The record is a 114-nucleotide sequence from Lingula anatina, which matches "Potassium channel RNA editing signal" in Rfam.
[Rfam]
RNA sequence: GUAGGUUAUGGUGAUAUGAGGCCUAUAGGUGUGUGGGGAAAGCUGGUUGGUUCUCUGUGUGCUAUUACUGGUGUGCUAACAAUUGCACUCCCAGUCCCUGUUAUUGUUUCCAAC
Numbered sequence: 001g002u003a004g005g006u007u008a009u010g011g012u013g014a015u016a017u018g019a020g021g022c023c024u025a026u027a028g029g030u031g032u033g034u035g036g037g038g039a040a041a042g043c044u045g046g047u048u049g050g051u052u053c054u055c056u057g058u059g060u061g062c063u064a065u066u067a068c069u070g071g072u073g074u075g076c077u078a079a080c081a082a083u084u085g086c087a088c089u090c091c092c093a094g095u096c097c098c099u100g101u102u103a104u105u106g107u108u109u110c111c112a113a114c
Stems, first nucleotide, its partner, number of pairs: 001114002004111002008107004013102004018097001021095002037077002040074001049063003

About the family: This family represents a group of sequences related to the human potassium channel Kv1.1 hairpin element which directs the efficient modification of an adenosine to inosine by an adenosine deaminase acting on RNA (ADAR). The ADAR modification causes an isoleucine/valine recoding event which lies in the ion-conducting pore of the potassium channel. It is thought that this editing event targets the process of fast inactivation and allows a more rapid recovery from inactivation at negative potentials. A search with the family's covariance model found it, with a score of 92 bits. Taxonomically the source falls in Lingula (Eukaryota, Metazoa, Spiralia, Lingulidae). For this family Rfam cites "Control of human potassium channel inactivation by editing of a small mRNA hairpin" (Bhalla et al., Nat Struct Mol Biol, 2004).